[Rfam]
RNA: Small nucleolar RNA Z159/U59
RNA sequence: GCUGUGGACGAUGAUACACAUUUGAUGCAUUUCCAUAUUGGGUUACAGCCCGUGCGGAAAACGUUUGGAGACCUGAACUGACACAUU
Numbered sequence: 001g002c003u004g005u006g007g008a009c010g011a012u013g014a015u016a017c018a019c020a021u022u023u024g025a026u027g028c029a030u031u032u033c034c035a036u037a038u039u040g041g042g043u044u045a046c047a048g049c050c051c052g053u054g055c056g057g058a059a060a061a062c063g064u065u066u067g068g069a070g071a072c073c074u075g076a077a078c079u080g081a082c083a084c085a086u087u
Stems, first nucleotide, its partner, number of pairs: 003085004